Background: Rfam assigns this 569-nucleotide RNA from Phanerochaete carnosa to the family "Nuclear RNase P". The match comes from Rfam's covariance-model search (51 bits).

[Rfam]
RNA sequence: GACAGUCCAAAAACCGCGACGCUCGUUCCGUACAAGGCGCUUUGACGCGUCCAAAUUCGCGAGCGGGUUAAGGUCUGAGGAUUACAUAUCCCUCUCGAUCGACUCUAGCCGGGUCUUACCGGUGUCCAAACGAAACGACGUACCAGAAACACGGCUGGCUUGCUCUCGAAUGGCGAAGACUCCCGUACCGUGGACGAGUCUAUCGAGCCUCGCUCUCGCCGGGCCUAGGAGCCAAGGUUGUUCUCGCAACGUAGCCUUUAAAACGUCGUAGGGAUUGGGGAGGCCAAGCGUACGUUGCUCCACACAUCUUUCUCAUUCUGUGCCCUUUUGGGCUGGCGGGGGCACAUCUCGGGCCAUGCUGUUGCGCUAUUGAAGCGGCACGCUGGCUGUCGUAGUCAGAAGCACUGUCGUAGUAAAUAUGCUCACAGGGCGAGCUGCGGCAUGUAGUCUUCAGGAAUAGUGAGGAUGAUGUUACGUGAAACUCCAUUACUAUGUCUCCCCUUCAGUGCACUUCGCGGUCUCCGGAACUUAGUCCCGGGGAACUCGAUUCAGACUACUCUUGGGUUGUC
Numbered sequence: 001g002a003c004a005g006u007c008c009a010a011a012a013a014c015c016g017c018g019a020c021g022c023u024c025g026u027u028c029c030g031u032a033c034a035a036g037g038c039g040c041u042u043u044g045a046c047g048c049g050u051c052c053a054a055a056u057u058c059g060c061g062a063g064c065g066g067g068u069u070a071a072g073g074u075c076u077g078a079g080g081a082u083u084a085c086a087u088a089u090c091c092c093u094c095u096c097g098a099u100c101g102a103c104u105c106u107a108g109c110c111g112g113g114u115c116u117u118a119c120c121g122g123u124g125u126c127c128a129a130a131c132g133a134a135a136c137g138a139c140g141u142a143c144c145a146g147a148a149a150c151a152c153g154g155c156u157g158g159c160u161u162g163c164u165c166u167c168g169a170a171u172g173g174c175g176a177a178g179a180c181u182c183c184c185g186u187a188c189c190g191u192g193g194a195c196g197a198g199u200c201u202a203u204c205g206a207g208c209c210u211c212g213c214u215c216u217c218g219c220c221g222g223g224c225c226u227a228g229g230a231g232c233c234a235a236g237g238u239u240g241u242u243c244u245c246g247c248a249a250c251g252u253a254g255c256c257u258u259u260a261a262a263a264c265g266u267c268g269u270a271g272g273g274a275u276u277g278g279g280g281a282g283g284c285c286a287a288g289c290g291u292a293c294g295u296u297g298c299u300c301c302a303c304a305c306a307u308c309u310u311u312c313u314c315a316u317u318c319u320g321u322g323c324c325c326u327u328u329u330g331g332g333c334u335g336g337c338g339g340g341g342g343c344a345c346a347u348c349u350c351g352g353g354c355c356a357u358g359c360u361g362u363u364g365c366g367c368u369a370u371u372g373a374a375g376c377g378g379c380a381c382g383c384u385g386g387c388u389g390u391c392g393u394a395g396u397c398a399g400a401a402g403c404a405c406u407g408u409c410g411u412a413g414u415a416a417a418u419a420u421g422c423u424c425a426c427a428g429g430g431c432g433a434g435c436u437g438c439g440g441c442a443u444g445u446a447g448u449c450u451u452c453a454g455g456a457a458u459a460g461u462g463a464g465g466a467u468g469a470u471g472u473u474a475c476g477u478g479a480a481a482c483u484c485c486a487u488u489a490c491u492a493u494g495u496c497u498c499c500c501c502u503u504c505a506g507u508g509c510a511c512u513u514c515g516c517g518g519u520c521u522c523c524g525g526a527a528c529u530u531a532g533u534c535c536c537g538g539g540g541a542a543c544u545c546g547a548u549u550c551a552g553a554c555u556a557c558u559c560u561u562g563g564g565u566u567g568u569c
Stems, first nucleotide, its partner, number of pairs: 001569004008562003013519007021064005035050001037048003075552005101115005116134002120132002135269007153256005520540006